[Rfam]
RNA: terC RNA
RNA sequence: GCGCCAGGCCGGGCCCCUCUGGCAGUCGCGUCCUGCGGCUGCGAUGUCGGACUGGCGGA
Dot-bracket structure: .....((.((((.........((((((((.....))))))))....)))).))......